[Rfam]
Nucleotides: 125
Stems, first nucleotide, its partner, number of pairs: 001017001003015002018043003022039002025036003048124001050095006056084002059081003064076002103120005
Number, partner (000 for none) and nucleotide at each position: 001017g002000c003015a004014a005000u006000g007000a008000g009000u010000g011000g012000c013000c014004u015003u016000c017001c018043g019042c020041c021000u022039a023038c024000g025036a026035c027034u028000g029000u030000c031000a032000a033000g034027a035026g036025u037000a038023g039022u040000u041020g042019g043018c044000a045000a046000a047000c048124c049000g050095c051094a052093u053092c054091a055090u056084g057083c058000u059081g060080c061079a062000u063000a064076g065075a066000u067000g068000g069000a070000a071000a072000c073000a074000u075065u076064c077000c078000u079061u080060g081059u082000g083057g084056u085000g086000a087000a088000c089000g090055g091054u092053g093052g094051u095050g096000u097000u098000a099000a100000a101000a102000a103120c104119g105118g106117g107116g108000a109000c110000a111000a112000a113000g114000a115000u116107u117106c118105c119104c120103g121000a122000a123000g124048g125000u
Group II catalytic intron D1-D4-2: a 125-nucleotide RNA from Lunatimonas lonarensis. It scores 53 bits against the family's covariance model. On this family, see Bonen and Vogel, Trends Genet 2001: "The ins and outs of group II introns". Group II introns are found in rRNA, tRNA and mRNA of organelles in fungi, plants and protists, and also in mRNA in bacteria. Rfam 15.1 lists 1,231 matches to the family in 625 species. The pairing is the family consensus, mapped onto this sequence.